Glycine riboswitch aptamer: a 106-nucleotide RNA sequence from Streptomyces boncukensis.
Gene Ontology term of the family: glycine biosynthetic process.
Taxonomically the source falls in Streptomyces (Bacteria, Actinomycetota, Kitasatosporales, Streptomycetaceae).
A search with the family's covariance model found it, with a score of 64 bits.
RNA sequence: CGAGCCCGCGCGGGAGAGUUCCCGGAUCCGGUCAGCCGGAUGCCGGGGCGCCGAAGGAGCAAGAUCCUCCCUUGAAUCUCUCAGGCCCCGAUACCGCGCAGGGUGA
Numbered sequence: 001c002g003a004g005c006c007c008g009c010g011c012g013g014g015a016g017a018g019u020u021c022c023c024g025g026a027u028c029c030g031g032u033c034a035g036c037c038g039g040a041u042g043c044c045g046g047g048g049c050g051c052c053g054a055a056g057g058a059g060c061a062a063g064a065u066c067c068u069c070c071c072u073u074g075a076a077u078c079u080c081u082c083a084g085g086c087c088c089c090g091a092u093a094c095c096g097c098g099c100a101g102g103g104u105g106a
Stems, first nucleotide, its partner, number of pairs: 006101001008099006020048006050086003053082002057080003063073002